Shown here is a 145-nucleotide RNA sequence from Paenisporosarcina sp. HGH0030, a member of the family "FMN riboswitch aptamer (RFN element)". The base pairs follow the family's consensus structure, which is taken from published work. The match comes from Rfam's covariance-model search (117 bits). Lineage of the source: Bacteria > Bacillati > Bacilli > Caryophanales > Paenisporosarcina.

RNA sequence: UAUAUUCUUCGGGGCAAGGUGAAAUUCCUUACCGGCGGUGAACAAAUGUAGAUUUGUAAGUCCGUGACCCGGUGCUUGAAAAAGUAGCGGUGGAGUUGGUGCGAAUCCAACACCGACAGUAUAGUCUGGAUGGGAGAAGAGUAUA
Numbered sequence: 001u002a003u004a005u006u007c008u009u010c011g012g013g014g015c016a017a018g019g020u021g022a023a024a025u026u027c028c029u030u031a032c033c034g035g036c037g038g039u040g041a042a043c044a045a046a047u048g049u050a051g052a053u054u055u056g057u058a059a060g061u062c063c064g065u066g067a068c069c070c071g072g073u074g075c076u077u078g079a080a081a082a083a084g085u086a087g088c089g090g091u092g093g094a095g096u097u098g099g100u101g102c103g104a105a106u107c108c109a110a111c112a113c114c115g116a117c118a119g120u121a122u123a124g125u126c127u128g129g130a131u132g133g134g135a136g137a138a139g140a141g142u143a144u145a
Stems, first nucleotide, its partner, number of pairs: 003143008017029003031125002033115002035065004060113002069090002095111005117128003